A member of the RNA family "pan motif" from Sporomusa malonica, 101 nucleotides long. It scores 46 bits against the family's covariance model. By type it is a cis-regulatory element. The organism belongs to Sporomusa, within Bacteria.
[Rfam]
Nucleotides: 101
Stems, first nucleotide, its partner, number of pairs: 003025001004023005010018002070097003073093005079088003
Number, partner (000 for none) and nucleotide at each position: 001000a002000u003025g004023g005022c006021g007020g008019u009000a010018u011017c012000c013000u014000a015000u016000g017011g018010a019008a020007c021006u022005g023004c024000a025003c026000c027000g028000u029000c030000u031000a032000a033000u034000c035000g036000u037000u038000u039000u040000u041000g042000a043000c044000a045000g046000c047000a048000a049000a050000u051000u052000g053000a054000a055000u056000u057000u058000u059000c060000u061000u062000u063000g064000g065000a066000u067000c068000g069000a070097c071096u072095g073093c074092u075091u076090g077089g078000a079088u080087u081086c082000u083000a084000a085000c086081g087080g088079a089077c090076c091075g092074a093073g094000a095072c096071g097070g098000a099000a100000g101000u